[Rfam]
RNA sequence: CGUUCCCUGGAGAGACUUGUUGAAUCAAGCAUCGAAGAAGCAACUCAUAAUACAUAUUAUGAGGAAACUUUCAGAUACAAGGACAGGGAGGUAGAG
Numbered sequence: 001c002g003u004u005c006c007c008u009g010g011a012g013a014g015a016c017u018u019g020u021u022g023a024a025u026c027a028a029g030c031a032u033c034g035a036a037g038a039a040g041c042a043a044c045u046c047a048u049a050a051u052a053c054a055u056a057u058u059a060u061g062a063g064g065a066a067a068c069u070u071u072c073a074g075a076u077a078c079a080a081g082g083a084c085a086g087g088g089a090g091g092u093a094g095a096g
Stems, first nucleotide, its partner, number of pairs: 003090007016029004031076003034072002038070003044063008

Overview
The family of this 96-nucleotide RNA sequence from Tissierella sp. P1 is "Glycine riboswitch aptamer".